[Rfam]
RNA sequence: GCUGGGUGCAGUGGCGAACACCUGUAAUCCUGUGACUCGGAGGCUGAAGCCGGCGGAUUGCUUGAGCUCAGGAGUUCUGGGCUGCAGUGCGCUAUGCCGGUUGGGUGCCUGCGUUAAGUUUGGCAUCAAUACCGUGAUCCCAGGGGUCACAACAUUGCUUAAGAAGGGGUGAACCAGCCCAGGUUUGAAAUGGAGCAGGUCAAAACUCCUGUGUGGAUUAGUAGUGGGACUGCACCUGUGAAUAGCCCCUGCUGCCUAGCCUGGGCAACACAGUGGGACCUGGUCACUU
Numbered sequence: 001g002c003u004g005g006g007u008g009c010a011g012u013g014g015c016g017a018a019c020a021c022c023u024g025u026a027a028u029c030c031u032g033u034g035a036c037u038c039g040g041a042g043g044c045u046g047a048a049g050c051c052g053g054c055g056g057a058u059u060g061c062u063u064g065a066g067c068u069c070a071g072g073a074g075u076u077c078u079g080g081g082c083u084g085c086a087g088u089g090c091g092c093u094a095u096g097c098c099g100g101u102u103g104g105g106u107g108c109c110u111g112c113g114u115u116a117a118g119u120u121u122g123g124c125a126u127c128a129a130u131a132c133c134g135u136g137a138u139c140c141c142a143g144g145g146g147u148c149a150c151a152a153c154a155u156u157g158c159u160u161a162a163g164a165a166g167g168g169g170u171g172a173a174c175c176a177g178c179c180c181a182g183g184u185u186u187g188a189a190a191u192g193g194a195g196c197a198g199g200u201c202a203a204a205a206c207u208c209c210u211g212u213g214u215g216g217a218u219u220a221g222u223a224g225u226g227g228g229a230c231u232g233c234a235c236c237u238g239u240g241a242a243u244a245g246c247c248c249c250u251g252c253u254g255c256c257u258a259g260c261c262u263g264g265g266c267a268a269c270a271c272a273g274u275g276g277g278a279c280c281u282g283g284u285c286a287c288u289u
Base pairs, nucleotide, nucleotide: 001044002043003042004023005022006021007020008019028041029040030039046287049284050283051282052281053280058276059275060274061273062272066266067265068264069263070262071261072260077259078258079257080256081255082254084252085251086250087249089247091246092245093244094243095242097240102238103237104236105235106234107233108232109228110227112226113225114224115223116222118219120217121216123214124213125212126211127157128156129155130154134150135149136148137147138146139145140144159163165210166209167208168207169206170205177200178199179198184193185192

Rfam assigns this 289-nucleotide sequence from Crocodylus porosus to the family "Metazoan signal recognition particle RNA". Taxonomically the source falls in Crocodylus (Eukaryota, Opisthokonta, Archosauria, Crocodylidae). Gene Ontology terms of the family: signal recognition particle, endoplasmic reticulum targeting and SRP-dependent cotranslational protein targeting to membrane, signal sequence recognition. Rfam classes the family as a non-coding RNA gene. The family has 91 seed sequences and 383,523 matches in Rfam 15.1.